Rfam assigns this 67-nucleotide RNA sequence from Paractinoplanes atraurantiacus to the family "Transposase-2 RNA". The match comes from Rfam's covariance-model search (69 bits). The organism belongs to Paractinoplanes, within Bacteria. Rfam classes the family as a small RNA. The family's consensus secondary structure is taken from published work.
RNA sequence: GAAGCGUGAACCCGGCUCGGCAUCCGCUGGUAAGACCGGGACCGUCCUAUCGCAAGGUAGGACUACC
Numbered sequence: 001g002a003a004g005c006g007u008g009a010a011c012c013c014g015g016c017u018c019g020g021c022a023u024c025c026g027c028u029g030g031u032a033a034g035a036c037c038g039g040g041a042c043c044g045u046c047c048u049a050u051c052g053c054a055a056g057g058u059a060g061g062a063c064u065a066c067c
Stems, first nucleotide, its partner, number of pairs: 011040005018029004044063008